[Rfam]
small nucleolar RNA snoR143: a 164-nucleotide sequence from Daucus carota. It scores 59 bits against the family's covariance model. Rfam 15.1 lists 660 matches to the family in 212 species. The family's RNA type in Rfam is H/ACA-box small nucleolar RNA. The family's consensus secondary structure was predicted with RNAalifold. For this family Rfam cites "Mining small RNA sequencing data: a new approach to identify small nucleolar RNAs in Arabidopsis" (Chen and Wu, Nucleic Acids Res, 2009). Gene Ontology terms of the family: RNA processing and nucleolus. NCBI's taxonomy places the organism under Eukaryota, Streptophyta, asterids, Apioideae, Daucus carota.

RNA sequence: UUCUUGAUUUAUUUGUGUAUGCAUACAUUUAUGUGUGCUAUACAUUUUAUUUCGAGAUGAUAAUUGUAAAGAAUAUAAGGCAGCGGCCAGACAACCGUAGAGAUGGAUUCCACAGAUGAACAGCUUUUCUCGUUCUGUUUGUCUACUAAUUAAAUCUCACAUCU
Numbered sequence: 001u002u003c004u005u006g007a008u009u010u011a012u013u014u015g016u017g018u019a020u021g022c023a024u025a026c027a028u029u030u031a032u033g034u035g036u037g038c039u040a041u042a043c044a045u046u047u048u049a050u051u052u053c054g055a056g057a058u059g060a061u062a063a064u065u066g067u068a069a070a071g072a073a074u075a076u077a078a079g080g081c082a083g084c085g086g087c088c089a090g091a092c093a094a095c096c097g098u099a100g101a102g103a104u105g106g107a108u109u110c111c112a113c114a115g116a117u118g119a120a121c122a123g124c125u126u127u128u129c130u131c132g133u134u135c136u137g138u139u140u141g142u143c144u145a146c147u148a149a150u151u152a153a154a155u156c157u158c159a160c161a162u163c164u
Stems, first nucleotide, its partner, number of pairs: 002057002006052002011047001014044006021038005100158005107151001119140002121137003